[Rfam]
RNA sequence: UAAACUGGUUUAAUGUGUUUUGCAAAGACCUUGGCUUUUCUUAAAUUUUAUAUAUUGGAAAGCCCGUGUUUGUAUUGGACCCACUGGUUUC
Dot-bracket structure: .((((((((.....(.((((.(.(.((((...((((((((................))))))))...)))).).).))))).)))))))).
RNA: mir-1284 microRNA precursor family